[Rfam]
Pseudomonas sRNA CrcZ: a 393-nucleotide RNA sequence from Pseudomonas asplenii. It scores 329 bits against the family's covariance model. Rfam classes the family as a small RNA. Pairs were carried over by alignment from the consensus structure, which was predicted with WAR.
RNA sequence: ACAAGAACAAUAACAAGCAAUGUACAAGACAAUAAAAAUAAGACGAAUCGACUCACGCAUAACAAAAACAACACGGCGGAGGCGCAGCUAACUGAUUCUUUUGGAGAGGCGUUGUAUUUGGGGCUUGCCCCAUGACCAGGCCGAGAACAACAAAAACUGCACUCAAAGCAGAGCCUGAACUGGUUAGAUCCUCGGAUCAUGACAACACAGCGACCAAAGCAAUCCGUUUGCUCUUGACUCCCGAUUGGGAGACGUCACAAGGGUAAAAACUUGUGACACAGGGCGAUCAACAAAAACAAAAAGCCCGCGACCAUAAUAAAAAAGAGCACGCAACUACUUCUGGGGGAGCUUCGGCUCCCCUUGUAGUUUCCGCAAUUCCCCUUCCCAGGCCCG
Numbered sequence: 001a002c003a004a005g006a007a008c009a010a011u012a013a014c015a016a017g018c019a020a021u022g023u024a025c026a027a028g029a030c031a032a033u034a035a036a037a038a039u040a041a042g043a044c045g046a047a048u049c050g051a052c053u054c055a056c057g058c059a060u061a062a063c064a065a066a067a068a069c070a071a072c073a074c075g076g077c078g079g080a081g082g083c084g085c086a087g088c089u090a091a092c093u094g095a096u097u098c099u100u101u102u103g104g105a106g107a108g109g110c111g112u113u114g115u116a117u118u119u120g121g122g123g124c125u126u127g128c129c130c131c132a133u134g135a136c137c138a139g140g141c142c143g144a145g146a147a148c149a150a151c152a153a154a155a156a157c158u159g160c161a162c163u164c165a166a167a168g169c170a171g172a173g174c175c176u177g178a179a180c181u182g183g184u185u186a187g188a189u190c191c192u193c194g195g196a197u198c199a200u201g202a203c204a205a206c207a208c209a210g211c212g213a214c215c216a217a218a219g220c221a222a223u224c225c226g227u228u229u230g231c232u233c234u235u236g237a238c239u240c241c242c243g244a245u246u247g248g249g250a251g252a253c254g255u256c257a258c259a260a261g262g263g264u265a266a267a268a269a270c271u272u273g274u275g276a277c278a279c280a281g282g283g284c285g286a287u288c289a290a291c292a293a294a295a296a297c298a299a300a301a302a303g304c305c306c307g308c309g310a311c312c313a314u315a316a317u318a319a320a321a322a323a324g325a326g327c328a329c330g331c332a333a334c335u336a337c338u339u340c341u342g343g344g345g346g347a348g349c350u351u352c353g354g355c356u357c358c359c360c361u362u363g364u365a366g367u368u369u370c371c372g373c374a375a376u377u378c379c380c381c382u383u384c385c386c387a388g389g390c391c392c393g
Stems, first nucleotide, its partner, number of pairs: 049084002052081003099219005113212003133186007157171004238251004278376001281306004324369004342361008